Shown here is a 153-nucleotide RNA sequence from Amborella trichopoda, a member of the family "MIR8565 microRNA precursor family". It scores 140 bits against the family's covariance model. The base pairs follow the family's consensus structure, which was predicted with RNAalifold.
RNA sequence: CCCUCACCCAUGUGUGUAGGACCCCAAAGGAUCACCAUUACAUUUGGCACAAAUCUUUAGAAAAGUUAUCACAUGUGUGUGGGACUGACUUUUCUAAAGAUCUGUACCAAAUUUAGUAGUGAUCCUUUAGGGUCCUACACACAUGGGUGUGGG
Number, nucleotide and partner (000 for none) at each position: 001c000002c152003c151004u000005c149006a148007c147008c146009c145010a144011u143012g142013u141014g000015u139016g138017u137018a136019g135020g134021a133022c132023c131024c130025c000026a128027a127028a126029g000030g124031a123032u122033c000034a120035c119036c000037a117038u116039u115040a114041c000042a112043u111044u110045u109046g108047g107048c000049a105050c104051a103052a000053a101054u100055c099056u098057u097058u096059a095060g094061a093062a092063a091064a090065g089066u088067u087068a086069u082070c081071a080072c079073a078074u000075g000076u000077g000078u073079g072080u071081g070082g069083g000084a000085c000086u068087g067088a066089c065090u064091u063092u062093u061094c060095u059096a058097a057098a056099g055100a054101u053102c000103u051104g050105u049106a000107c047108c046109a045110a044111a043112u042113u000114u040115a039116g038117u037118a000119g035120u034121g000122a032123u031124c030125c000126u028127u027128u026129a000130g024131g023132g022133u021134c020135c019136u018137a017138c016139a015140c000141a013142c012143a011144u010145g009146g008147g007148u006149g005150u000151g003152g002153g000